[Rfam]
RNA sequence: AGUGCAGGGGUUAUGUAUCGGCACCAUGCUCUAAUGGCAUGCAUUGGCUACCGAGCGUUCCCUGCUACAUUGAUCAUAAGGGAGAAUGGACUCUUGGGCUUUUCCUCGUUAAUUGACUGCUCAACAAUCUUUCUCCCUACAUUU
Numbered sequence: 001a002g003u004g005c006a007g008g009g010g011u012u013a014u015g016u017a018u019c020g021g022c023a024c025c026a027u028g029c030u031c032u033a034a035u036g037g038c039a040u041g042c043a044u045u046g047g048c049u050a051c052c053g054a055g056c057g058u059u060c061c062c063u064g065c066u067a068c069a070u071u072g073a074u075c076a077u078a079a080g081g082g083a084g085a086a087u088g089g090a091c092u093c094u095u096g097g098g099c100u101u102u103u104c105c106u107c108g109u110u111a112a113u114u115g116a117c118u119g120c121u122c123a124a125c126a127a128u129c130u131u132u133c134u135c136c137c138u139a140c141a142u143u144u
Stems, first nucleotide, its partner, number of pairs: 004065007013044006079138008088129002094124003
RNA: small nucleolar RNA snoR135